[Rfam]
RNA sequence: CAUCAAUGAUGACAAAAGUAAGGCUUGUUUCUCAAGAACAUUCGCAGUGGCCGCCUAAGAGCUUUCGCCACGCCAGGCUUGAGAGCUAAUGCUGCUUUAUCCUUCCUUGGAUGUCUGAGAUU
Dot-bracket structure: .(((........................................................((((((..............))))))................................))).

Small nucleolar RNA SNORD14: a 122-nucleotide RNA sequence from Prunus dulcis. For this family Rfam cites "An essential domain in Saccharomyces cerevisiae U14 snoRNA is absent in vertebrates, but conserved in other yeasts" (Samarsky et al., Nucleic Acids Res, 1996). The family's consensus secondary structure was predicted with PFOLD. U14 small nucleolar RNA (U14 snoRNA) is required for early cleavages of eukaryotic precursor rRNAs.